RNA sequence: UUUUUAGUAUAAGUAUAUCCCAUGAAAUAUUUGGGAGGUACUUACACUUAAA
Numbered sequence: 001u002u003u004u005u006a007g008u009a010u011a012a013g014u015a016u017a018u019c020c021c022a023u024g025a026a027a028u029a030u031u032u033g034g035g036a037g038g039u040a041c042u043u044a045c046a047c048u049u050a051a052a
Base pairs, nucleotide, nucleotide: 006048007047008046010044011043012042014040015039016038018036019035020034021033022031